This 73-nucleotide sequence from Nodosilinea sp. LEGE 07088 belongs to the Rfam family "tRNA". It scores 59 bits against the family's covariance model. Taxonomically the source falls in Nodosilinea (Bacteria, Cyanophyceae, Nodosilineales, Nodosilineaceae).

RNA sequence: CUCCAGGUAGCCAAAUUAGCAAGGCGCUGGUCUGCAAAACCGGAAAUUGCGGGUGCAACUCCCGCCCUGGAGU
Numbered sequence: 001c002u003c004c005a006g007g008u009a010g011c012c013a014a015a016u017u018a019g020c021a022a023g024g025c026g027c028u029g030g031u032c033u034g035c036a037a038a039a040c041c042g043g044a045a046a047u048u049g050c051g052g053g054u055g056c057a058a059c060u061c062c063c064g065c066c067c068u069g070g071a072g073u
Stems, first nucleotide, its partner, number of pairs: 001072007010025003027043005049065005